[Rfam]
RNA: Pseudomon-Rho RNA
Organism: Pseudomonas putida
RNA sequence: UUCGGCCUCGCACUGUUUCUCCAGUGCCCCCUGCACGCCGUCGCCGACGCACUCCUAAUUAGAAUCUGUGCGCGAUCCUAUCGCCUUCUAGCGGCGCGGC
Numbered sequence: 001u002u003c004g005g006c007c008u009c010g011c012a013c014u015g016u017u018u019c020u021c022c023a024g025u026g027c028c029c030c031c032u033g034c035a036c037g038c039c040g041u042c043g044c045c046g047a048c049g050c051a052c053u054c055c056u057a058a059u060u061a062g063a064a065u066c067u068g069u070g071c072g073c074g075a076u077c078c079u080a081u082c083g084c085c086u087u088c089u090a091g092c093g094g095c096g097c098g099g100c
Stems, first nucleotide, its partner, number of pairs: 010027006037100004042096005072084005